[Rfam]
RNA sequence: UGAGGCUCUUGGGUGAUGCACCCUGAAAUCAGGCUCCUUUCUCUCUGGUUCUGGGUGUGUCACCGAGAACCGCA
Number, nucleotide and partner (000 for none) at each position: 001u000002g073003a000004g000005g070006c000007u068008c067009u066010u065011g000012g064013g063014u062015g061016a060017u059018g000019c057020a056021c055022c054023c053024u000025g052026a000027a050028a049029u048030c047031a046032g045033g044034c000035u000036c000037c000038u000039u000040u000041c000042u000043c000044u033045c032046u031047g030048g029049u028050u027051c000052u025053g023054g022055g021056u020057g019058u000059g017060u016061c015062a014063c013064c012065g010066a009067g008068a007069a000070c005071c000072g000073c002074a000
Shown here is a 74-nucleotide RNA sequence from Cnephaeus nilssonii, a member of the family "mir-9223 microRNA precursor family".
NCBI's taxonomy places the organism under Eukaryota, Craniata, Euteleostomi, Laurasiatheria, Cnephaeus.